[Rfam]
RNA sequence: GCCAUUGCCAAACCGCCGCCGCCCCCCUAUAUCCCCGAGUGCCGGAGGGGUUCGCCCCUUGGCUAUGGCGAUAAACGGCACGUGGAAUAAGUGUUGUGGACCCGGGGGCAGUACCCGGCGUCUCCACCAGAUCCUUCCGGUUCGGCUCCGCGCGGGGCCGGGGGCUAUGGGGACGAAACAGGCUCGACACGCAUGGUAAAGACCUGCCUUUUGCCCGGCAUUGUACCACCGUCAUCGGGCUGAAUCACAAGUGCCAACGAUAACUUCGAGGCGCUCGCUGUCGCUGCAUAAGUGACAAGCGCGGUUCGGGAGGCACCGGGCAACAGAAGCCUCCCACU
Numbered sequence: 001g002c003c004a005u006u007g008c009c010a011a012a013c014c015g016c017c018g019c020c021g022c023c024c025c026c027c028u029a030u031a032u033c034c035c036c037g038a039g040u041g042c043c044g045g046a047g048g049g050g051u052u053c054g055c056c057c058c059u060u061g062g063c064u065a066u067g068g069c070g071a072u073a074a075a076c077g078g079c080a081c082g083u084g085g086a087a088u089a090a091g092u093g094u095u096g097u098g099g100a101c102c103c104g105g106g107g108g109c110a111g112u113a114c115c116c117g118g119c120g121u122c123u124c125c126a127c128c129a130g131a132u133c134c135u136u137c138c139g140g141u142u143c144g145g146c147u148c149c150g151c152g153c154g155g156g157g158c159c160g161g162g163g164g165c166u167a168u169g170g171g172g173a174c175g176a177a178a179c180a181g182g183c184u185c186g187a188c189a190c191g192c193a194u195g196g197u198a199a200a201g202a203c204c205u206g207c208c209u210u211u212u213g214c215c216c217g218g219c220a221u222u223g224u225a226c227c228a229c230c231g232u233c234a235u236c237g238g239g240c241u242g243a244a245u246c247a248c249a250a251g252u253g254c255c256a257a258c259g260a261u262a263a264c265u266u267c268g269a270g271g272c273g274c275u276c277g278c279u280g281u282c283g284c285u286g287c288a289u290a291a292g293u294g295a296c297a298a299g300c301g302c303g304g305u306u307c308g309g310g311a312g313g314c315a316c317c318g319g320g321c322a323a324c325a326g327a328a329g330c331c332u333c334c335c336a337c338u
Stems, first nucleotide, its partner, number of pairs: 041063005067215005077208004082203002092193003096190003102118005119175007216231003221242001223240001226238002302318004309334006